[Rfam]
RNA sequence: UACAUGUCUGAGAGCAGUGUGUUACAACUAAUCACAACCAGUUACAGAUUACUUUGUUCCUUCCUCUAUUUCAACUGCUCCACUUGACCAGUCAUAA
Numbered sequence: 001u002a003c004a005u006g007u008c009u010g011a012g013a014g015c016a017g018u019g020u021g022u023u024a025c026a027a028c029u030a031a032u033c034a035c036a037a038c039c040a041g042u043u044a045c046a047g048a049u050u051a052c053u054u055u056g057u058u059c060c061u062u063c064c065u066c067u068a069u070u071u072c073a074a075c076u077g078c079u080c081c082a083c084u085u086g087a088c089c090a091g092u093c094a095u096a097a
Stems, first nucleotide, its partner, number of pairs: 002092002006088003010085002014081001016076003019072001021070001026058003030054002

Y RNA: a 97-nucleotide RNA from Castor canadensis. The base pairs follow the family's consensus structure, which is taken from published work. Taxonomically the source falls in Castor (Eukaryota, Amniota, Boreoeutheria, Rodentia). Rfam classes the family as a non-coding RNA gene. It scores 46 bits against the family's covariance model. On this family, see Van Horn et al., RNA 1995: "Caenorhabditis elegans embryos contain only one major species of Ro RNP".